Shown here is a 207-nucleotide RNA sequence from Candidatus Mesenet longicola, a member of the family "permuted transfer-messenger RNA". By type it is a non-coding RNA gene. Taxonomically the source falls in Candidatus Mesenet (Bacteria, Pseudomonadati, Alphaproteobacteria, Anaplasmataceae).
RNA sequence: AGCAAUAAAAGCACUUUAUAAUAGGUGUAAUGGACCCGAGGGCAGUUCUCGGCGUCUCCACCACUUUUGUAUGGGGACGAGGUAGGAUCGACAUGCAUAGUAAAAAAAGUAGCCAUUGCUCGGGAAGAUAUCUCCGUAAGAAUUCACAUUUUAAGUGCAAACGAUAAUGUUGCAAGUGAAGGAAGUGAGUCUGCAGUUGCUGCAUAA
Numbered sequence: 001a002g003c004a005a006u007a008a009a010a011g012c013a014c015u016u017u018a019u020a021a022u023a024g025g026u027g028u029a030a031u032g033g034a035c036c037c038g039a040g041g042g043c044a045g046u047u048c049u050c051g052g053c054g055u056c057u058c059c060a061c062c063a064c065u066u067u068u069g070u071a072u073g074g075g076g077a078c079g080a081g082g083u084a085g086g087a088u089c090g091a092c093a094u095g096c097a098u099a100g101u102a103a104a105a106a107a108a109g110u111a112g113c114c115a116u117u118g119c120u121c122g123g124g125a126a127g128a129u130a131u132c133u134c135c136g137u138a139a140g141a142a143u144u145c146a147c148a149u150u151u152u153a154a155g156u157g158c159a160a161a162c163g164a165u166a167a168u169g170u171u172g173c174a175a176g177u178g179a180a181g182g183a184a185g186u187g188a189g190u191c192u193g194c195a196g197u198u199g200c201u202g203c204a205u206a207a
Stems, first nucleotide, its partner, number of pairs: 001120005014109004026097003030094003036052005053079007121136004